Shown here is a 74-nucleotide sequence from a Hymenobacteraceae bacterium, a member of the family "tRNA". The source organism's lineage runs through Bacteria, Bacteroidota, Cytophagia, Cytophagales and Hymenobacteraceae. Pairs were carried over by alignment from the consensus structure, which is taken from published work. Rfam classes the family as a transfer RNA.
[Rfam]
RNA sequence: GGUUGUGUAGCUCAACUGGAUAGAGCAUCUGACUACGAAUCAGAAGGUUUAAGGUUCGACUCCUUACACGACCA
Number, nucleotide and partner (000 for none) at each position: 001g073002g072003u071004u070005g069006u068007g067008u000009a000010g026011c025012u024013c023014a000015a000016c000017u000018g000019g000020a000021u000022a000023g013024a012025g011026c010027a000028u044029c043030u042031g041032a040033c000034u000035a000036c000037g000038a000039a000040u032041c031042a030043g029044a028045a000046g000047g000048u000049u000050u066051a065052a064053g063054g062055u000056u000057c000058g000059a000060c000061u000062c054063c053064u052065u051066a050067c007068a006069c005070g004071a003072c002073c001074a000